[Rfam]
RNA sequence: UGUUUGCCUUGAUGAUUCCUACAAGGACGGUAUCUGAGUAAGGUUCUUGAAAGAGUACUCCUUAUGUGAUUACAUCCAAAACUGAUCAGAGAUUCUGAGUAAACA
Numbered sequence: 001u002g003u004u005u006g007c008c009u010u011g012a013u014g015a016u017u018c019c020u021a022c023a024a025g026g027a028c029g030g031u032a033u034c035u036g037a038g039u040a041a042g043g044u045u046c047u048u049g050a051a052a053g054a055g056u057a058c059u060c061c062u063u064a065u066g067u068g069a070u071u072a073c074a075u076c077c078a079a080a081a082c083u084g085a086u087c088a089g090a091g092a093u094u095c096u097g098a099g100u101a102a103a104c105a
Stems, first nucleotide, its partner, number of pairs: 001105007038065006
Shown here is a 105-nucleotide sequence, a member of the family "Small nucleolar RNA Z118/Z121/Z120". Its family is annotated with RNA processing and nucleolus in the Gene Ontology. It is annotated as a C/D-box small nucleolar RNA.